[Rfam]
RNA: Saccharopolyspora sRNA 350
RNA sequence: CGGGCCGUGUACUCCCACAGGGCAUCGGGGUCGAGGAGCGCCUGGUCGCCGAAGUACGCGCCGUCGGCCAGCAUGCCGAGUUCGGCGUCGUCCCCGUACGGGCCCGUGCCGAUCUUCUCGACCUUGCCGUGGGCCAGCAGGAACACCUCGUCGUUCGUGCUGCCGAAGGAGGCGAUCUCCGAUCCGGGCGCGAACUCCCGCUGCUCGCAACGCCGGGCGAGCUCCGCGAACACCUCCUCGUCCUCGUAGUCCCGCAGCGCCGGCAACUCGGACAGUUCGGCGGGGACCACUUCCACGCGGUCACCGGUCUUCACGAACGUCAGACGGCCGUCUCCCACGGAGUAGGUGAGCCGCCGGUUCACACGGUAUGCACCACCCUGCACGUUCACCCAGGGAAGCAUCCGCAGCAGCCAGCGCGAGCUGAUCUCCUGCAUCUGGGGAACGGAUUUGGUGGUGGUGGCCAGGUUCCGCGCGGCCGAAGUGCCCAGACUCUGCUGCGGCUUGUCCU
Numbered sequence: 001c002g003g004g005c006c007g008u009g010u011a012c013u014c015c016c017a018c019a020g021g022g023c024a025u026c027g028g029g030g031u032c033g034a035g036g037a038g039c040g041c042c043u044g045g046u047c048g049c050c051g052a053a054g055u056a057c058g059c060g061c062c063g064u065c066g067g068c069c070a071g072c073a074u075g076c077c078g079a080g081u082u083c084g085g086c087g088u089c090g091u092c093c094c095c096g097u098a099c100g101g102g103c104c105c106g107u108g109c110c111g112a113u114c115u116u117c118u119c120g121a122c123c124u125u126g127c128c129g130u131g132g133g134c135c136a137g138c139a140g141g142a143a144c145a146c147c148u149c150g151u152c153g154u155u156c157g158u159g160c161u162g163c164c165g166a167a168g169g170a171g172g173c174g175a176u177c178u179c180c181g182a183u184c185c186g187g188g189c190g191c192g193a194a195c196u197c198c199c200g201c202u203g204c205u206c207g208c209a210a211c212g213c214c215g216g217g218c219g220a221g222c223u224c225c226g227c228g229a230a231c232a233c234c235u236c237c238u239c240g241u242c243c244u245c246g247u248a249g250u251c252c253c254g255c256a257g258c259g260c261c262g263g264c265a266a267c268u269c270g271g272a273c274a275g276u277u278c279g280g281c282g283g284g285g286a287c288c289a290c291u292u293c294c295a296c297g298c299g300g301u302c303a304c305c306g307g308u309c310u311u312c313a314c315g316a317a318c319g320u321c322a323g324a325c326g327g328c329c330g331u332c333u334c335c336c337a338c339g340g341a342g343u344a345g346g347u348g349a350g351c352c353g354c355c356g357g358u359u360c361a362c363a364c365g366g367u368a369u370g371c372a373c374c375a376c377c378c379u380g381c382a383c384g385u386u387c388a389c390c391c392a393g394g395g396a397a398g399c400a401u402c403c404g405c406a407g408c409a410g411c412c413a414g415c416g417c418g419a420g421c422u423g424a425u426c427u428c429c430u431g432c433a434u435c436u437g438g439g440g441a442a443c444g445g446a447u448u449u450g451g452u453g454g455u456g457g458u459g460g461c462c463a464g465g466u467u468c469c470g471c472g473c474g475g476c477c478g479a480a481g482u483g484c485c486c487a488g489a490c491u492c493u494g495c496u497g498c499g500g501c502u503u504g505u506c507c508u
Stems, first nucleotide, its partner, number of pairs: 007389003011385002016380001021325001025322001027320001029318001031316002036312003040308003045304002048301004054233002057228004063222001065111004075103001077102001080099001083096003117221004122216002126213002130209001132206002135203003140198002143196001149192002153189005159183001164174002235295001240287006252280003256277003260271003329342001331340002353377001356374002362370002391431005397425001399423002403418003407415001437476001440473001443470004447465006478506001480502003484499001486497003